[Rfam]
The record is a 119-nucleotide RNA, which matches "DUF3800-I RNA" in Rfam.
The family's RNA type in Rfam is small RNA.
Rfam describes the family as follows. Actinobacteria, Firmicutes, Fusobacteria, Proteobacteria (1 example), Tenericutes (2 examples).
The sequence is in the family's curated seed alignment.
RNA sequence: UCUAUACACAGGCGAAAGCACUGUAUACACUUGUGUCUUGAUGAUAUAUUAAGUGUGCUGUGUGUACACCAAGCCAAGUGGAGAAAACCACCCUUAGGGGUGGUUUUCUUUUUACCCUA
Numbered sequence: 001u002c003u004a005u006a007c008a009c010a011g012g013c014g015a016a017a018g019c020a021c022u023g024u025a026u027a028c029a030c031u032u033g034u035g036u037c038u039u040g041a042u043g044a045u046a047u048a049u050u051a052a053g054u055g056u057g058c059u060g061u062g063u064g065u066a067c068a069c070c071a072a073g074c075c076a077a078g079u080g081g082a083g084a085a086a087a088c089c090a091c092c093c094u095u096a097g098g099g100g101u102g103g104u105u106u107u108c109u110u111u112u113u114a115c116c117c118u119a
Stems, first nucleotide, its partner, number of pairs: 008024004012019002028080006037073004041049003053069006082109012